[Rfam]
RNA sequence: AGUCCGUAUGGAGACGGAAACGUCUUCAUACCUCCCUGUUGGACUUCGCCGGGCCAGUUUGGCCCGGCUUUUUUU
Numbered sequence: 001a002g003u004c005c006g007u008a009u010g011g012a013g014a015c016g017g018a019a020a021c022g023u024c025u026u027c028a029u030a031c032c033u034c035c036c037u038g039u040u041g042g043a044c045u046u047c048g049c050c051g052g053g054c055c056a057g058u059u060u061g062g063c064c065c066g067g068c069u070u071u072u073u074u075u
Stems, first nucleotide, its partner, number of pairs: 008029007048068009